[Rfam]
RNA sequence: UCUGCGGAACGCUUCCUUGUGGUCUCACAAGGAACAACUCGUGUCAAUGUCCUUUUCCGUUAAGCGAGGAACGAGUAGGAAAAGAGAAACGUUCCCCAAUCGGCACGAAUGGGAAUAGAACGUUUAAUUGACUCGUGUUGAGUGCAGCAGA
Numbered sequence: 001u002c003u004g005c006g007g008a009a010c011g012c013u014u015c016c017u018u019g020u021g022g023u024c025u026c027a028c029a030a031g032g033a034a035c036a037a038c039u040c041g042u043g044u045c046a047a048u049g050u051c052c053u054u055u056u057c058c059g060u061u062a063a064g065c066g067a068g069g070a071a072c073g074a075g076u077a078g079g080a081a082a083a084g085a086g087a088a089a090c091g092u093u094c095c096c097c098a099a100u101c102g103g104c105a106c107g108a109a110u111g112g113g114a115a116u117a118g119a120a121c122g123u124u125u126a127a128u129u130g131a132c133u134c135g136u137g138u139u140g141a142g143u144g145c146a147g148c149a150g151a
Stems, first nucleotide, its partner, number of pairs: 001151005009143002013034009035140004040135002043132006052086002056080002088124006095113004

Rfam assigns this 151-nucleotide RNA sequence from Enterococcus faecalis to the family "Enterococcus-1 RNA". By type it is a small RNA.